The record is a 90-nucleotide sequence from Planctomycetaceae bacterium SCGC AG-212-D15, which matches "Selenocysteine transfer RNA" in Rfam.
[Rfam]
RNA sequence: GGAAGAGGAUAGGCUGGUCCUUCGCUGGUCUUCAAAACCAGUGGAGGGUUUGAACAAAGCUCUCUGUGGGUUCGAUUCCCAUACACUCCC
Dot-bracket structure: ((.((.(.(.(((.....)))..((((((.......)))))).(((((...........)))))..((((.......))))).).)).))
Gene Ontology term of the family: triplet codon-amino acid adaptor activity.
The family's consensus secondary structure is taken from published work.
Taxonomically the source falls in Planctomycetaceae (Bacteria, Planctomycetota, Planctomycetia, Planctomycetales).